Annotation: Rfam assigns this 90-nucleotide RNA sequence from Tindallia californiensis to the family "c-di-GMP-I riboswitch aptamer". A search with the family's covariance model found it, with a score of 69 bits.

Nucleotides: 090
Stems, first nucleotide, its partner, number of pairs: 012038002017033004023028001041084004046080003049075003056069004
Number, partner (000 for none) and nucleotide at each position: 001000a002000g003000a004000u005000g006000a007000a008000a009000a010000a011000g012038g013037c014000a015000a016000a017033g018032c019031c020030g021000u022000u023028c024000g025000a026000a027000a028023g029000u030020c031019g032018g033017u034000g035000a036000c037013g038012c039000a040000a041084a042083g043082c044081c045000a046080c047079g048078a049075a050074u051073c052000u053000a054000c055000g056069u057068c058067a059066g060000g061000u062000a063000a064000a065000u066059c067058u068057g069056a070000u071000a072000g073051g074050a075049u076000g077000g078048u079047c080046g081044g082043g083042u084041u085000g086000c087000c088000c089000g090000u